[Rfam]
RNA sequence: AGACCGGACUCGUAAGUCCUGGACCCGGCUGCUUCUACGUAAGUAGAUGAUACUCCGUCUGGCCUUUGGCCCGCCUUCGGGCGUGAACGGUGAGAAUCGGCCCCCAGGGUGAGCCGGUUU
Numbered sequence: 001a002g003a004c005c006g007g008a009c010u011c012g013u014a015a016g017u018c019c020u021g022g023a024c025c026c027g028g029c030u031g032c033u034u035c036u037a038c039g040u041a042a043g044u045a046g047a048u049g050a051u052a053c054u055c056c057g058u059c060u061g062g063c064c065u066u067u068g069g070c071c072c073g074c075c076u077u078c079g080g081g082c083g084u085g086a087a088c089g090g091u092g093a094g095a096a097u098c099g100g101c102c103c104c105c106a107g108g109g110u111g112a113g114c115c116g117g118u119u120u
Base pairs, nucleotide, nucleotide: 001120002119003118004117005116006115007114009113010112011111012110018108019107020106021105022104027102028101029100034047035046036045037044038043072083073082074081075080
RNA: DUF3800-III RNA